[Rfam]
RNA sequence: UGGCUAUAGCUAUAUUAAACCCAUAGAAGUUUACUGGCCGGUUGUUAUAUUUUCAGUUAACAAAUCUGCUUACCGAACUUCUUACAUUU
Numbered sequence: 001u002g003g004c005u006a007u008a009g010c011u012a013u014a015u016u017a018a019a020c021c022c023a024u025a026g027a028a029g030u031u032u033a034c035u036g037g038c039c040g041g042u043u044g045u046u047a048u049a050u051u052u053u054c055a056g057u058u059a060a061c062a063a064a065u066c067u068g069c070u071u072a073c074c075g076a077a078c079u080u081c082u083u084a085c086a087u088u089u
Stems, first nucleotide, its partner, number of pairs: 025082007036070003040066004044061004